[Rfam]
RNA sequence: GGUUUGUAGGCAGUGUAGUUAGCUGAUUGUUUCCGUCCCUCUGCAAUCACUAACUUCACUGCCAUCAAAAC
Numbered sequence: 001g002g003u004u005u006g007u008a009g010g011c012a013g014u015g016u017a018g019u020u021a022g023c024u025g026a027u028u029g030u031u032u033c034c035g036u037c038c039c040u041c042u043g044c045a046a047u048c049a050c051u052a053a054c055u056u057c058a059c060u061g062c063c064a065u066c067a068a069a070a071c
Stems, first nucleotide, its partner, number of pairs: 003069004009063002012060004017055006024049007
Dot-bracket structure: ..((((..((.((((.((((((.(((((((............))))))))))))).)))).))..))))..
Annotation:
The record is a 71-nucleotide RNA from Sphenodon punctatus, which matches "mir-34 microRNA precursor family" in Rfam. The match comes from Rfam's covariance-model search (70 bits). Human mir-34a was discovered computationally and later experimentally verified. The mature sequence is excised from the 5' arm of the hairpin. The family is grouped with related families in Rfam's "mir-34 clan". A reference for the family is Lim et al. (2003), "Vertebrate microRNA genes", Science.